msiK RNA: a 60-nucleotide sequence from Bifidobacterium magnum. Rfam 15.1 lists 1,374 matches to the family in 1,364 species. Pairs were carried over by alignment from the consensus structure, which is taken from published work. The source organism's lineage runs through Bacteria, Actinomycetota, Actinomycetes, Bifidobacteriaceae and Bifidobacterium. The family's RNA type in Rfam is cis-regulatory element.
[Rfam]
RNA sequence: ACAAGUAAUCCCCUCACAACGGAUCGUUCGGCACGUACCUGCCGAUGAAAGGAUUAAUGA
Numbered sequence: 001a002c003a004a005g006u007a008a009u010c011c012c013c014u015c016a017c018a019a020c021g022g023a024u025c026g027u028u029c030g031g032c033a034c035g036u037a038c039c040u041g042c043c044g045a046u047g048a049a050a051g052g053a054u055u056a057a058u059g060a
Base pairs, nucleotide, nucleotide: 010052011051014048015047016046028045029044030043031042032041033040